RNA sequence: GGUUUUUACCCAGUAUCAAAAGGUACUAGGAUGUUUUGACCGGUUCUACGAACUGUGUUGGAUAAACCAAAUUUUUUUGAACGCGCUCCUGGGGUUAUCCGGGAGUGCAAA
Dot-bracket structure: .......(((..(((((....)))))..))...)..(((((((((.....))))).))))..........................(.((..((....))...)).)....
Numbered sequence: 001g002g003u004u005u006u007u008a009c010c011c012a013g014u015a016u017c018a019a020a021a022g023g024u025a026c027u028a029g030g031a032u033g034u035u036u037u038g039a040c041c042g043g044u045u046c047u048a049c050g051a052a053c054u055g056u057g058u059u060g061g062a063u064a065a066a067c068c069a070a071a072u073u074u075u076u077u078u079g080a081a082c083g084c085g086c087u088c089c090u091g092g093g094g095u096u097a098u099c100c101g102g103g104a105g106u107g108c109a110a111a
Stems, first nucleotide, its partner, number of pairs: 008034001009030002013026005037060004041055005087107001089105002093100002